[Rfam]
RNA sequence: CGACCUUCCAUUGGGGAGUAGCCGCCCUGAUCUCACCGCGCCGCGCAAUGCGGCACCCGGAAGACAGGGGCGUACGUCAACAGACUUGACCAAAUGCCGACAUGGCAGGCGGUUAUGGCGUGCGCAGCCCAGGACCUUGUGUCCAGUGCCUGGCGAGACCGAUGACCACACCUUUCUGGCCGGGCCGGGAAAGGUGUGCGUCAUUGGCAUCUCGCGAUGCAUU
Numbered sequence: 001c002g003a004c005c006u007u008c009c010a011u012u013g014g015g016g017a018g019u020a021g022c023c024g025c026c027c028u029g030a031u032c033u034c035a036c037c038g039c040g041c042c043g044c045g046c047a048a049u050g051c052g053g054c055a056c057c058c059g060g061a062a063g064a065c066a067g068g069g070g071c072g073u074a075c076g077u078c079a080a081c082a083g084a085c086u087u088g089a090c091c092a093a094a095u096g097c098c099g100a101c102a103u104g105g106c107a108g109g110c111g112g113u114u115a116u117g118g119c120g121u122g123c124g125c126a127g128c129c130c131a132g133g134a135c136c137u138u139g140u141g142u143c144c145a146g147u148g149c150c151u152g153g154c155g156a157g158a159c160c161g162a163u164g165a166c167c168a169c170a171c172c173u174u175u176c177u178g179g180c181c182g183g184g185c186c187g188g189g190a191a192a193g194g195u196g197u198g199c200g201u202c203a204u205u206g207g208c209a210u211c212u213c214g215c216g217a218u219g220c221a222u223u
Stems, first nucleotide, its partner, number of pairs: 026068003070125010087115005131223002
Annotation:
A member of the RNA family "Manganese Mn2+ riboswitch aptamer (yybP-ykoY)" from Cupriavidus metallidurans, 223 nucleotides long. It scores 49 bits against the family's covariance model. The base pairs follow the family's consensus structure. Rfam's curators write: This RNA was originally discovered in E. coli during a large scale screen and was named SraF. The family was later found to exist upstream of related families of protein genes in many bacteria, including the the yybP and ykoK genes in B. subtilis. Taxonomically the source falls in Cupriavidus metallidurans (Bacteria, Pseudomonadati, Pseudomonadota, Burkholderiales).